[Rfam]
RNA sequence: GUUGCUUCUUAUGGUGCUCUCUCUAUAAUACAAGUGAGGGAUGUUAGUUUCCGAAGCAUGAAUUAAACUGUCAGUAUUGAACAUCAUGGUGCAGUUUCAAUGGCAUCUUGCUACCUGUCUCCUGCUACAUUU
Numbered sequence: 001g002u003u004g005c006u007u008c009u010u011a012u013g014g015u016g017c018u019c020u021c022u023c024u025a026u027a028a029u030a031c032a033a034g035u036g037a038g039g040g041a042u043g044u045u046a047g048u049u050u051c052c053g054a055a056g057c058a059u060g061a062a063u064u065a066a067a068c069u070g071u072c073a074g075u076a077u078u079g080a081a082c083a084u085c086a087u088g089g090u091g092c093a094g095u096u097u098c099a100a101u102g103g104c105a106u107c108u109u110g111c112u113a114c115c116u117g118u119c120u121c122c123u124g125c126u127a128c129a130u131u132u
Stems, first nucleotide, its partner, number of pairs: 003058006016044002018041005070126001072124003076120001083112001085110001088107004
Shown here is a 132-nucleotide sequence from Anisodus acutangulus, a member of the family "small nucleolar RNA snoR137".
The organism belongs to Anisodus, within Eukaryota.
For this family Rfam cites "Mining small RNA sequencing data: a new approach to identify small nucleolar RNAs in Arabidopsis" (Chen and Wu, Nucleic Acids Res, 2009).
Rfam 15.1 lists 808 matches to the family in 221 species.
Gene Ontology terms of the family: RNA processing and nucleolus.